Rfam assigns this 205-nucleotide RNA sequence from Paenibacillus cellulosilyticus to the family "c-di-AMP riboswitch aptamer (ydaO/yuaA leader)". The organism belongs to Paenibacillus, within Bacteria. The match comes from Rfam's covariance-model search (89 bits). This family represents a conserved RNA structure found upstream of the ydaO and yuaA genes in Bacillus subtilis and related genes in other bacteria.

RNA sequence: AAUAUUCAACAGCCGAAUUUCCAAUGGAAAACGGGGGAACCAUAACGUUGCCGUCUAUGUAGAUGCAGCCGAUCACAUCGGCCGGACGCGGCAACUUGGGGUGAAUUCAGCAUCAGUUGAGAACGAUGUUCUUACCUUGCUGAUAGGGCGAUCUAUCCGGGCCCGAAUCCGACAGCUAACCUCGUAGGCUGCAUGGACAGAACUC
Numbered sequence: 001a002a003u004a005u006u007c008a009a010c011a012g013c014c015g016a017a018u019u020u021c022c023a024a025u026g027g028a029a030a031a032c033g034g035g036g037g038a039a040c041c042a043u044a045a046c047g048u049u050g051c052c053g054u055c056u057a058u059g060u061a062g063a064u065g066c067a068g069c070c071g072a073u074c075a076c077a078u079c080g081g082c083c084g085g086a087c088g089c090g091g092c093a094a095c096u097u098g099g100g101g102u103g104a105a106u107u108c109a110g111c112a113u114c115a116g117u118u119g120a121g122a123a124c125g126a127u128g129u130u131c132u133u134a135c136c137u138u139g140c141u142g143a144u145a146g147g148g149c150g151a152u153c154u155a156u157c158c159g160g161g162c163c164c165g166a167a168u169c170c171g172a173c174a175g176c177u178a179a180c181c182u183c184g185u186a187g188g189c190u191g192c193a194u195g196g197a198c199a200g201a202a203c204u205c
Base pairs, nucleotide, nucleotide: 011190012189013188014187018030019029020028031185032184033183034182035181036180041098042097099170100169101168107143108142109141110140111139112138146164147163148162149161